[Rfam]
A member of the RNA family "c-di-GMP-I riboswitch aptamer" from Clostridium ljungdahlii, 88 nucleotides long. The family's consensus secondary structure is taken from published work. GEMM was predicted in a large-scale screen for bacterial structured RNA regulatory elements. Rfam links the family to the GO term cyclic-di-GMP binding. The organism belongs to Clostridium, within Bacteria.
RNA sequence: CAUUGAUAAUAGCACAUUUAUCGAAAGAUAAAGUCGCAAAGCUAUGGGUCUAAAGGAAAUUAUUUUCUAUGACUGCCAGGUUACCAAA
Numbered sequence: 001c002a003u004u005g006a007u008a009a010u011a012g013c014a015c016a017u018u019u020a021u022c023g024a025a026a027g028a029u030a031a032a033g034u035c036g037c038a039a040a041g042c043u044a045u046g047g048g049u050c051u052a053a054a055g056g057a058a059a060u061u062a063u064u065u066u067c068u069a070u071g072a073c074u075g076c077c078a079g080g081u082u083a084c085c086a087a088a
Stems, first nucleotide, its partner, number of pairs: 012037002017032006040082004045078003048073003055067004